A member of the RNA family "Bacterial RNase P class A" from Eilatimonas milleporae, 374 nucleotides long.

RNA sequence: GCAGAUGGCCGGAUGGCCGCCGCCGCCCCAUGGGCGGGGGAGGAAAGUCCGGGCUCCACGGAAACACGGUGCCGGUUAACGGCCGGCGAAGGCGACUUCAGGGACAGUGCCACAGAAAGCAAACCGCCUGUCUUGCGGCAGGUAAGGGUGAAAGGGUGCGGUAAGAGCGCACCGCGCCCCUGGUAACAGGGGUGGCAGGGUAAACCCCACCGGGAGCAAAACCAAUAGGGAUGGUUGCUGGCAACAGCAGGCGGGUUUCCGCGCCACCGUCCGGGUCGGUUGCUUGAGCCUGUCGGCAACGGCAGGCCUAGAGGAAUGGCCAUCCAUCCGCGCCAUGCGGAGGACAGAACCCGGCUUACAGGCCAUCUGCUUCC
Dot-bracket structure: ((((((((((((((((((.((.((((((...)))))).))....[[[.[[[[[((((.....[[..((((((((((.....)))))(((((....)))).)((...(((((............(((((((((....)))))))..)).......((((((.......))))))(((((((((....)))))))).)..)))..)))))))))))))...((((.....((((((...............((((...]]...)))).)))))).....))))......((((((((....))))))))..........))))))).........................]]]]]]]].).))))))))))....
It scores 322 bits against the family's covariance model.